7SK RNA: a 320-nucleotide RNA sequence from Neotoma lepida.
Rfam's curators write: 7SK was discovered as an abundant small nuclear RNA in the mid-70s but a possible function has only recently been suggested. Two independent studies have found that 7SK RNA binds the CDK9/cyclin T complex (known as elongation factor P-TEFb). P-TEFb activates transcription by phosphorylating the C-terminal domain of RNA polymerase II. This process is negatively regulated by the 7SK RNP. The secondary structure of 7SK RNA shown here was proposed by Wasserman and Steitz on the basis of chemical modification and enzymatic cleavage experiments. This family contains a number of annotated pseudogenes and 7SK derived repeats. The threshold is artificially high to minimise the pseudogene count.
Taxonomically the source falls in Neotoma (Eukaryota, Dipnotetrapodomorpha, Amniota, Rodentia).
A search with the family's covariance model found it, with a score of 223 bits.
RNA sequence: GGAUGUGAGGGUGAUCUGGCUGCGACAUCUGUCACCCCAUUAAUCACCAUGGUUGAUUCGGCUGAUCUGGCUGGCUAGGCGGGUGUCCCCUUCCUCACCGCUCCAUGUGUGUCCAUCCCGAAGCUGAGUGCUUGGCCAAAGAGGACGACCUUCCCUGAAUAGAGGAGGACCAGUCUUCGGUCAAGGGUAUAUGAGUAGCUGUGCUCCCCUGCUGGAACCUCCAAACAAGCUCUCAAGAAAUGACAUUAACAGGGCGUGGUGGCACAUACCUUUAAUCCCAGCACUAGGGCAGUAGAGGUGAAGCAGGUGGAUCUUUGAGU
Numbered sequence: 001g002g003a004u005g006u007g008a009g010g011g012u013g014a015u016c017u018g019g020c021u022g023c024g025a026c027a028u029c030u031g032u033c034a035c036c037c038c039a040u041u042a043a044u045c046a047c048c049a050u051g052g053u054u055g056a057u058u059c060g061g062c063u064g065a066u067c068u069g070g071c072u073g074g075c076u077a078g079g080c081g082g083g084u085g086u087c088c089c090c091u092u093c094c095u096c097a098c099c100g101c102u103c104c105a106u107g108u109g110u111g112u113c114c115a116u117c118c119c120g121a122a123g124c125u126g127a128g129u130g131c132u133u134g135g136c137c138a139a140a141g142a143g144g145a146c147g148a149c150c151u152u153c154c155c156u157g158a159a160u161a162g163a164g165g166a167g168g169a170c171c172a173g174u175c176u177u178c179g180g181u182c183a184a185g186g187g188u189a190u191a192u193g194a195g196u197a198g199c200u201g202u203g204c205u206c207c208c209c210u211g212c213u214g215g216a217a218c219c220u221c222c223a224a225a226c227a228a229g230c231u232c233u234c235a236a237g238a239a240a241u242g243a244c245a246u247u248a249a250c251a252g253g254g255c256g257u258g259g260u261g262g263c264a265c266a267u268a269c270c271u272u273u274a275a276u277c278c279c280a281g282c283a284c285u286a287g288g289g290c291a292g293u294a295g296a297g298g299u300g301a302a303g304c305a306g307g308u309g310g311a312u313c314u315u316u317g318a319g320u
Base pairs, nucleotide, nucleotide: 001104002103003102005098006097007096008095009094010093011092018090019089024087025086026085027084028083029082030081031080032079033078035074036073037070038069039068043066044065045064047061048060112168113167114165116163117162118135119134120133121132123131124130137157138156143154144153145152200266204262205261207259208258210256211255212254219252220251225247291320293318295315296314297313298312299311304310

Pairs were carried over by alignment from the consensus structure, which is taken from published work.